[Rfam]
RNA sequence: GUGCACAUGAUGGAAAAGUUAACUAUCCUGAGAUUUGUGAUGUCUCCAAAGGAACCGCUGAUGCAC
Numbered sequence: 001g002u003g004c005a006c007a008u009g010a011u012g013g014a015a016a017a018g019u020u021a022a023c024u025a026u027c028c029u030g031a032g033a034u035u036u037g038u039g040a041u042g043u044c045u046c047c048a049a050a051g052g053a054a055c056c057g058c059u060g061a062u063g064c065a066c
Base pairs, nucleotide, nucleotide: 001066002065003064004063005062
RNA: Small nucleolar RNA SNORD42